[Rfam]
RNA sequence: CAGAUCUCAGAUUUGGUUUUUUAAGCUGUGUGACACUCGCAGGUCACACAGCUUAAAAAACCAAAUCUGAGAUCUG
Numbered sequence: 001c002a003g004a005u006c007u008c009a010g011a012u013u014u015g016g017u018u019u020u021u022u023a024a025g026c027u028g029u030g031u032g033a034c035a036c037u038c039g040c041a042g043g044u045c046a047c048a049c050a051g052c053u054u055a056a057a058a059a060a061c062c063a064a065a066u067c068u069g070a071g072a073u074c075u076g
Stems, first nucleotide, its partner, number of pairs: 001076005007070016024053004029048006
RNA: mir-9/mir-79 microRNA precursor family
Organism: Octodon degus